The family of this 94-nucleotide RNA from Sorghum bicolor is "MIR5387 microRNA precursor family". Rfam 15.1 lists 1,029 matches to the family in 9 species. Gene Ontology terms of the family: RISC complex and miRNA-mediated post-transcriptional gene silencing. The source organism's lineage runs through Eukaryota, Poaceae, Andropogoneae, Sorghinae and Sorghum. It scores 84 bits against the family's covariance model.
[Rfam]
RNA sequence: UGGUAACACGAACCGGUGCUAAAGGGUUCCUGCCCUGACAGCACCUGUCAGUAGCCGUUGGACAGGACCCUUUAGCACUGGUUCUUGUUACGAA
Dot-bracket structure: ..((((((.((((((((((((((((((.((...((..((.....((...)).....)).))...)))))))))))))))))))).))))))...